[Rfam]
RNA: GP20-b RNA
RNA sequence: GGUCAGUAGAUGAGACCUUAAACAGUCAAUUCGUGGUGGAUGGUUACACACCUUAAACAACCUA
Number, nucleotide and partner (000 for none) at each position: 001g017002g016003u015004c014005a000006g000007u000008a000009g027010a026011u025012g000013a000014g004015a003016c002017c001018u000019u000020a000021a000022a000023c000024a000025g011026u010027c009028a000029a000030u000031u000032c000033g000034u000035g052036g051037u050038g049039g000040a000041u000042g000043g000044u000045u000046a000047c000048a000049c038050a037051c036052c035053u000054u000055a000056a000057a000058c000059a000060a000061c000062c000063u000064a000